mir-8799 microRNA precursor family: a 91-nucleotide RNA from Vulpes vulpes. Rfam 15.1 lists 20,638 matches to the family in 5 species. Gene Ontology terms of the family: miRNA-mediated post-transcriptional gene silencing and RISC complex.
RNA sequence: GGGGUAAUGCUGGAUCUUGGGCUGUGUCCCUGACACCCAGUGCUCCUGGGCCUGCGCUGUUGGAAUCGUGCUCCCAGCUGCGCAGCUCCCU
Numbered sequence: 001g002g003g004g005u006a007a008u009g010c011u012g013g014a015u016c017u018u019g020g021g022c023u024g025u026g027u028c029c030c031u032g033a034c035a036c037c038c039a040g041u042g043c044u045c046c047u048g049g050g051c052c053u054g055c056g057c058u059g060u061u062g063g064a065a066u067c068g069u070g071c072u073c074c075c076a077g078c079u080g081c082g083c084a085g086c087u088c089c090c091u
Base pairs, nucleotide, nucleotide: 001091002090003089004088009083010082011080012079013078016077017076019074020073021072023070024069025068026067027064028063029062030059032057034056036054040052042051043050044049